The family of this 60-nucleotide part of an RNA from Tychaedon coryphoeus is "Eukaryotic large subunit ribosomal RNA". The match comes from Rfam's covariance-model search (2218 bits).
RNA sequence: AACUGUUUAAUUAAAACAAAGCAUGGUGAAGGCCUGAGGCGGGUGUUGAUGCGAUGUGAU
Numbered sequence: 001a002a003c004u005g006u007u008u009a010a011u012u013a014a015a016a017c018a019a020a021g022c023a024u025g026g027u028g029a030a031g032g033c034c035u036g037a038g039g040c041g042g043g044u045g046u047u048g049a050u051g052c053g054a055u056g057u058g059a060u
Base pairs, nucleotide, nucleotide: 004018005017006016021057022056023055024054026052027051028050030046032044033043034042035041